[Rfam]
RNA sequence: ACAUGCAUGGCUCCUAGAAUGCCAUCUGAAAAGGCCAUCAAUUAUUGAUGGAACAAUGCAAAUGGCAUACAAGGAGCCAGGCAUAU
Numbered sequence: 001a002c003a004u005g006c007a008u009g010g011c012u013c014c015u016a017g018a019a020u021g022c023c024a025u026c027u028g029a030a031a032a033g034g035c036c037a038u039c040a041a042u043u044a045u046u047g048a049u050g051g052a053a054c055a056a057u058g059c060a061a062a063u064g065g066c067a068u069a070c071a072a073g074g075a076g077c078c079a080g081g082c083a084u085a086u
Base pairs, nucleotide, nucleotide: 001086003084004083005082006081008079009078010077011076012075013074014073017070019068020067021066022065023064024063027060028059
The record is an 86-nucleotide sequence from Capsicum baccatum, which matches "mir-160 microRNA precursor family" in Rfam. For this family Rfam cites "Prediction of plant microRNA targets" (Rhoades et al., Cell, 2002). Gene Ontology terms of the family: RISC complex and miRNA-mediated post-transcriptional gene silencing.